[Rfam]
RNA sequence: ACUUCAAAGAUUCUCCGAGUUUAUGGGCCUAACACUUUCAAGGUCAUGGCCGUAAACCGACAGGGUGUGCCGGGAAACGGGUACGCCUCCCAUUGCGGAAAGGGGAACACAGCUGGGUGCG
Numbered sequence: 001a002c003u004u005c006a007a008a009g010a011u012u013c014u015c016c017g018a019g020u021u022u023a024u025g026g027g028c029c030u031a032a033c034a035c036u037u038u039c040a041a042g043g044u045c046a047u048g049g050c051c052g053u054a055a056a057c058c059g060a061c062a063g064g065g066u067g068u069g070c071c072g073g074g075a076a077a078c079g080g081g082u083a084c085g086c087c088u089c090c091c092a093u094u095g096c097g098g099a100a101a102g103g104g105g106a107a108c109a110c111a112g113c114u115g116g117g118u119g120c121g
Base pairs, nucleotide, nucleotide: 003115011107012106013105014104015103016102019057020056021055022054023053024052025051027050028049029048034044035043036042063088064087065086066085067084068083069082070081071080073078089098090097
Overview
The record is a 121-nucleotide sequence from Desulforudis audaxviator, which matches "Molybdenum/Tungsten riboswitch aptamer (Moco RNA motif)" in Rfam. The source organism's lineage runs through Bacteria, Bacillati, Bacillota, Clostridia and Desulforudis audaxviator. It scores 64 bits against the family's covariance model.